[Rfam]
A member of the RNA family "IMES-1 RNA motif", 195 nucleotides long. The sequence is in the family's curated seed alignment. By type it is a non-coding RNA gene.
RNA sequence: CCUAACGAAACCGACUAGGGACCAACUGCAGACGGAGAACUAGAGAGAAUCGAAAGGAAGAGUCCGAAGGGCGAAAGCGUUAUAAAGAGUUAACGAUAAAAAAUAGCUUUAUAACCCACCAAGAGGAAAAGAGAGAAUCCUCAAGGAGCUUAAGAGAAUCUCACUUAAGACCCCUUCGAAACUCGGAUUAGAAGA
Numbered sequence: 001c002c003u004a005a006c007g008a009a010a011c012c013g014a015c016u017a018g019g020g021a022c023c024a025a026c027u028g029c030a031g032a033c034g035g036a037g038a039a040c041u042a043g044a045g046a047g048a049a050u051c052g053a054a055a056g057g058a059a060g061a062g063u064c065c066g067a068a069g070g071g072c073g074a075a076a077g078c079g080u081u082a083u084a085a086a087g088a089g090u091u092a093a094c095g096a097u098a099a100a101a102a103a104u105a106g107c108u109u110u111a112u113a114a115c116c117c118a119c120c121a122a123g124a125g126g127a128a129a130a131g132a133g134a135g136a137a138u139c140c141u142c143a144a145g146g147a148g149c150u151u152a153a154g155a156g157a158a159u160c161u162c163a164c165u166u167a168a169g170a171c172c173c174c175u176u177c178g179a180a181a182c183u184c185g186g187a188u189u190a191g192a193a194g195a
Base pairs, nucleotide, nucleotide: 001057002056003055015043016042017041018040065178066177067176068175069174070173079115080114081113082112083111084110085109086108087107123142124141125140126139127138131162132161133160134159149169150168151167152166153165154164